[Rfam]
The record is a 112-nucleotide RNA sequence from Halalkalibacter oceani, which matches "PyrR binding site" in Rfam. This family represents the PyrR binding site and terminator structure. This RNA structure is found upstream of a variety of genes involved in pyrimidine biosynthesis and transport. The alignment also includes a portion of the antiterminator structure. Pairs were carried over by alignment from the consensus structure, which is taken from published work.

RNA sequence: GUUCUCUUUAACUCAGUCCUGUGAGGCUGACAAGAGUGCUUUCCCUGGUCUUACUGUGCCUUAAUGAAGACCGCGAAACCCUCUCUGUCAGCCGCAGAGAGGGUUUUUUUGA
Numbered sequence: 001g002u003u004c005u006c007u008u009u010a011a012c013u014c015a016g017u018c019c020u021g022u023g024a025g026g027c028u029g030a031c032a033a034g035a036g037u038g039c040u041u042u043c044c045c046u047g048g049u050c051u052u053a054c055u056g057u058g059c060c061u062u063a064a065u066g067a068a069g070a071c072c073g074c075g076a077a078a079c080c081c082u083c084u085c086u087g088u089c090a091g092c093c094g095c096a097g098a099g100a101g102g103g104u105u106u107u108u109u110u111g112a
Base pairs, nucleotide, nucleotide: 004036005035006034007033008032013030014029015028016027017026018025048071049070050069051068052067075107076106077105078104079103080102081101082100083099084098085097086096087095